[Rfam]
RNA sequence: UUAUAAGCAAAAAACCACUUUUUAGGUUCAUUGGAAAACUGAUGUAUCUGGUCUAUAAUAUAGGUCAGAUACAUCAGUUUUCCAAUGAACUUAAAAAGUGAUUUCUUGCUUAUAG
Numbered sequence: 001u002u003a004u005a006a007g008c009a010a011a012a013a014a015c016c017a018c019u020u021u022u023u024a025g026g027u028u029c030a031u032u033g034g035a036a037a038a039c040u041g042a043u044g045u046a047u048c049u050g051g052u053c054u055a056u057a058a059u060a061u062a063g064g065u066c067a068g069a070u071a072c073a074u075c076a077g078u079u080u081u082c083c084a085a086u087g088a089a090c091u092u093a094a095a096a097a098g099u100g101a102u103u104u105c106u107u108g109c110u111u112a113u114a115g
Base pairs, nucleotide, nucleotide: 002114003113004112005111006110007109009107010106012104013103016100017099018098019097020096021095022094023093024092025091027089028088029087030086031085032084033083034082035081036080037079038078039077040076041075042074043073044072049067050066051065052064
Dot-bracket structure: .((((((.((.((..((((((((((.((((((((((((((((((....((((...........))))....)))))))))))))))))).))))))))))..)).)).)))))).
This 115-nucleotide RNA sequence from Trifolium medium belongs to the Rfam family "MIR2593 microRNA precursor family". A search with the family's covariance model found it, with a score of 102 bits. The source organism's lineage runs through Eukaryota, Embryophyta, Magnoliopsida, Trifolieae and Trifolium. Rfam links the family to the GO terms RISC complex and miRNA-mediated post-transcriptional gene silencing.